[Rfam]
RNA sequence: GAGGCCUAUGAUGAUUUGAAUUUGCCUACAUUGUCUGAUUGUCUAGCCAAUGACUGAAACAUAGACUAGCUUUGAGGCCUUC
Dot-bracket structure: (.((((.....................................................................)))).).
Numbered sequence: 001g002a003g004g005c006c007u008a009u010g011a012u013g014a015u016u017u018g019a020a021u022u023u024g025c026c027u028a029c030a031u032u033g034u035c036u037g038a039u040u041g042u043c044u045a046g047c048c049a050a051u052g053a054c055u056g057a058a059a060c061a062u063a064g065a066c067u068a069g070c071u072u073u074g075a076g077g078c079c080u081u082c
Stems, first nucleotide, its partner, number of pairs: 001081001003079004
Small nucleolar RNA SNORD34: an 82-nucleotide RNA from Populus deltoides. Rfam classes the family as a C/D-box small nucleolar RNA. NCBI's taxonomy places the organism under Eukaryota, Streptophyta, Embryophyta, Mesangiospermae, Populus. Its Rfam clan is "SNORD34 clan". Rfam 15.1 lists 1,319 matches to the family in 583 species. Rfam describes the family as follows. snoRNA U34 is found in intron 5 of the ribosomal protein L13a gene in humans.